[Rfam]
RNA sequence: UACAUUGUUUUCUAGGGUUCCGUGGUUGUACAUACGCCGGUCUGGUCCAAGAGAAAACGCACAGCUCACCCUGUGUUCACGGAGGGACAAAAGCCCGGGAGGA
Numbered sequence: 001u002a003c004a005u006u007g008u009u010u011u012c013u014a015g016g017g018u019u020c021c022g023u024g025g026u027u028g029u030a031c032a033u034a035c036g037c038c039g040g041u042c043u044g045g046u047c048c049a050a051g052a053g054a055a056a057a058c059g060c061a062c063a064g065c066u067c068a069c070c071c072u073g074u075g076u077u078c079a080c081g082g083a084g085g086g087a088c089a090a091a092a093g094c095c096c097g098g099g100a101g102g103a
Base pairs, nucleotide, nucleotide: 007058008057009056010055011054012053015048016047020045021044022042023039024038025037026036059076060075061074062073063072064071078098080101084096085095086094
Dot-bracket structure: ......((((((..((...(((((((.........))))..).)).))....))))))((((((......)))))).(.[...(((.......))).)..]..